[Rfam]
RNA sequence: UCCAAAUAGUUAUAAUUUACUUGUAUAAUUGUUAAGAUAUGGUUAACUAGUUUCUACCCGCGACCUUAUAUCUUGCGGACUACAAGUAAAAACUUUGUAUGU
Numbered sequence: 001u002c003c004a005a006a007u008a009g010u011u012a013u014a015a016u017u018u019a020c021u022u023g024u025a026u027a028a029u030u031g032u033u034a035a036g037a038u039a040u041g042g043u044u045a046a047c048u049a050g051u052u053u054c055u056a057c058c059c060g061c062g063a064c065c066u067u068a069u070a071u072c073u074u075g076c077g078g079a080c081u082a083c084a085a086g087u088a089a090a091a092a093c094u095u096u097g098u099a100u101g102u
Base pairs, nucleotide, nucleotide: 018088019087020086021085022084023083024082025081029049031047032046033045034044035043058078059077060076061075062074063073
Dot-bracket structure: .................((((((((...(.(((((.......))))).)........((((((.........))))))..))))))))..............
Overview
The family of this 102-nucleotide sequence from Turicibacter sp. HGF1 is "Purine riboswitch aptamer". Its family is annotated with purine nucleobase biosynthetic process in the Gene Ontology.